[Rfam]
A member of the RNA family "Rhodo-rpoB RNA" from Haematobacter massiliensis, 94 nucleotides long. The organism belongs to Haematobacter, within Bacteria. The family's RNA type in Rfam is cis-regulatory element.

RNA sequence: GGUUCGGGAGCGGUCGGUGGGACGGCCGCAUGAAUGGAACUCUUGGCCCCCUGUUUCUAGAGCGGUCCGCGCCGGUGCCCCGACGGCCGUGGAU
Numbered sequence: 001g002g003u004u005c006g007g008g009a010g011c012g013g014u015c016g017g018u019g020g021g022a023c024g025g026c027c028g029c030a031u032g033a034a035u036g037g038a039a040c041u042c043u044u045g046g047c048c049c050c051c052u053g054u055u056u057c058u059a060g061a062g063c064g065g066u067c068c069g070c071g072c073c074g075g076u077g078c079c080c081c082g083a084c085g086g087c088c089g090u091g092g093a094u
Stems, first nucleotide, its partner, number of pairs: 001041005010029007065094005071087004